The record is a 92-nucleotide RNA sequence from Agrobacterium tumefaciens, which matches "Rhizobiales sRNA Atu_Ti1" in Rfam. The family's consensus secondary structure was predicted with WAR. The sequence is in the family's curated seed alignment. By type it is a small RNA.
[Rfam]
RNA sequence: GUCCACGAAACGGCGGACCAGAGCCAGAAUCCUCCCAGGACGAUGGCGGUUGCCGGCCAAUAUCGCGAUGUCAUCAUCGUGAGGCCGGCUGU
Number, nucleotide and partner (000 for none) at each position: 001g018002u017003c016004c015005a000006c000007g000008a000009a000010a000011c000012g000013g000014c000015g004016g003017a002018c001019c000020a000021g000022a000023g047024c046025c045026a044027g000028a000029a000030u000031c039032c038033u000034c000035c000036c000037a000038g032039g031040a000041c000042g000043a000044u026045g025046g024047c023048g000049g092050u091051u000052g089053c088054c087055g086056g085057c084058c083059a000060a000061u000062a000063u082064c081065g080066c079067g078068a077069u076070g000071u000072c000073a000074u000075c000076a069077u068078c067079g066080u065081g064082a063083g058084g057085c056086c055087g054088g053089c052090u000091g050092u049